[Rfam]
RNA sequence: GUCAUGGGGAACCGCGAACUCCCCACGAGGCGCCAGCCAAAGGUCGCGUUCCAGUCCUGUGAACCCUGUCCGAAGGAGGCCCCAUG
Numbered sequence: 001g002u003c004a005u006g007g008g009g010a011a012c013c014g015c016g017a018a019c020u021c022c023c024c025a026c027g028a029g030g031c032g033c034c035a036g037c038c039a040a041a042g043g044u045c046g047c048g049u050u051c052c053a054g055u056c057c058u059g060u061g062a063a064c065c066c067u068g069u070c071c072g073a074a075g076g077a078g079g080c081c082c083c084a085u086g
Base pairs, nucleotide, nucleotide: 005025006024007023008022009021010020046080047079049077050076051075
chrB-a RNA: an 86-nucleotide RNA from Fuscibacter oryzae.
Pairs were carried over by alignment from the consensus structure, which is taken from published work.
By type it is a cis-regulatory element.
It scores 56 bits against the family's covariance model.
Lineage of the source: Bacteria > Pseudomonadati > Pseudomonadota > Paracoccaceae > Fuscibacter.